Notes
Rfam assigns this 157-nucleotide sequence from Legionella israelensis to the family "Group II catalytic intron D1-D4-7". A search with the family's covariance model found it, with a score of 96 bits. The pairing is the family consensus, mapped onto this sequence. Rfam links the family to the GO term Group II intron splicing. About the family: Group II introns are found in rRNA, tRNA and mRNA of organelles in fungi, plants and protists, and also in mRNA in bacteria. NCBI's taxonomy places the organism under Bacteria, Pseudomonadati, Pseudomonadota, Legionellales, Legionella.
RNA sequence: CCUAUGAUUCCCUUCAUAGUAGCCUAGUUCGACGUGCAUGGCCGGUAACAGCGAUGUGCGAAGCUCGAAUGACAAUGUACUGAAAUUCACUUUUGUGGAUGUCAUAGAUUUGCUGACAAGUAGACUAUGAACCUAGAAGGUUCAUCUGGGAUAAGGC
Numbered sequence: 001c002c003u004a005u006g007a008u009u010c011c012c013u014u015c016a017u018a019g020u021a022g023c024c025u026a027g028u029u030c031g032a033c034g035u036g037c038a039u040g041g042c043c044g045g046u047a048a049c050a051g052c053g054a055u056g057u058g059c060g061a062a063g064c065u066c067g068a069a070u071g072a073c074a075a076u077g078u079a080c081u082g083a084a085a086u087u088c089a090c091u092u093u094u095g096u097g098g099a100u101g102u103c104a105u106a107g108a109u110u111u112g113c114u115g116a117c118a119a120g121u122a123g124a125c126u127a128u129g130a131a132c133c134u135a136g137a138a139g140g141u142u143c144a145u146c147u148g149g150g151a152u153a154a155g156g157c
Stems, first nucleotide, its partner, number of pairs: 002019006028069005033060007041052002044049001087101001090098001104128004111118002132150006